[Rfam]
RNA sequence: AUACGUGUAGGGUGGAGAUGCACAACCGUCGGACCGUGUAGUAAUGCGUCCGGUCGACAGGCCUCUACGGGCCCACUCGUCCAGACCCGUUCUUGAUCAAGAUGCCCCCGUGGCGUCCAUGGCCGAAGGCUGAUUCCUCCUCCUGACUGAGUGCAUUUGACACCACAGCUAGCAGGACGCGUCGUCGCGACUUCGGCAGCACUGGAUUCCAGUCAGGCCGAAUCUCGCUAGACACGGGAGUGGCCCGCCACCCCCGACGCACCCUGACACCGACCGUGAGAAGUCGUGUGUGCCGAACGCCGUUUCCGGCAGCCCGGAAACCGA
Numbered sequence: 001a002u003a004c005g006u007g008u009a010g011g012g013u014g015g016a017g018a019u020g021c022a023c024a025a026c027c028g029u030c031g032g033a034c035c036g037u038g039u040a041g042u043a044a045u046g047c048g049u050c051c052g053g054u055c056g057a058c059a060g061g062c063c064u065c066u067a068c069g070g071g072c073c074c075a076c077u078c079g080u081c082c083a084g085a086c087c088c089g090u091u092c093u094u095g096a097u098c099a100a101g102a103u104g105c106c107c108c109c110g111u112g113g114c115g116u117c118c119a120u121g122g123c124c125g126a127a128g129g130c131u132g133a134u135u136c137c138u139c140c141u142c143c144u145g146a147c148u149g150a151g152u153g154c155a156u157u158u159g160a161c162a163c164c165a166c167a168g169c170u171a172g173c174a175g176g177a178c179g180c181g182u183c184g185u186c187g188c189g190a191c192u193u194c195g196g197c198a199g200c201a202c203u204g205g206a207u208u209c210c211a212g213u214c215a216g217g218c219c220g221a222a223u224c225u226c227g228c229u230a231g232a233c234a235c236g237g238g239a240g241u242g243g244c245c246c247g248c249c250a251c252c253c254c255c256g257a258c259g260c261a262c263c264c265u266g267a268c269a270c271c272g273a274c275c276g277u278g279a280g281a282a283g284u285c286g287u288g289u290g291u292g293c294c295g296a297a298c299g300c301c302g303u304u305u306c307c308g309g310c311a312g313c314c315c316g317g318a319a320a321c322c323g324a
Stems, first nucleotide, its partner, number of pairs: 014140004023132002026129002029126004036120003083093003101117004141177005180259004184233003187228004194220004199213001237254002240251004267291004271286004302321007
Dot-bracket structure: .............((((.....((.((.((((...(((............................................(((.....))).......((((.........)))))))..)))).)).))....))))(((((...........................)))))..(((((((((((...((((.(.............)...))))....))))..)))...((.((((....)))).)).)))).......((((((((........)))).))))..........(((((((......)))))))...